[Rfam]
The family of this 144-nucleotide RNA sequence from Aquamicrobium lusatiense is "Alphaproteobacterial sRNA ar7". It scores 109 bits against the family's covariance model. For this family Rfam cites "A survey of sRNA families in alpha-proteobacteria" (del Val et al., RNA Biol, 2012). Rfam classes the family as a small RNA. NCBI's taxonomy places the organism under Bacteria, Pseudomonadota, Hyphomicrobiales, Phyllobacteriaceae, Aquamicrobium.
RNA sequence: CAUCGGCAGUUUUCGCCGAAGUCCGGAAACAAGGCCCGUCCCCCGCCUUACCGGACGAAUGCGGCAGCCUAUCCCCCUCUCCGGGCUGCCGCACCGUUUGAAGUAAAGCCGCCGUGGUUCCCCCCUCCGCCACGGCGGCGCUUC
Numbered sequence: 001c002a003u004c005g006g007c008a009g010u011u012u013u014c015g016c017c018g019a020a021g022u023c024c025g026g027a028a029a030c031a032a033g034g035c036c037c038g039u040c041c042c043c044c045g046c047c048u049u050a051c052c053g054g055a056c057g058a059a060u061g062c063g064g065c066a067g068c069c070u071a072u073c074c075c076c077c078u079c080u081c082c083g084g085g086c087u088g089c090c091g092c093a094c095c096g097u098u099u100g101a102a103g104u105a106a107a108g109c110c111g112c113c114g115u116g117g118u119u120c121c122c123c124c125c126u127c128c129g130c131c132a133c134g135g136c137g138g139c140g141c142u143u144c
Stems, first nucleotide, its partner, number of pairs: 022055005028049001033047003060093010109138010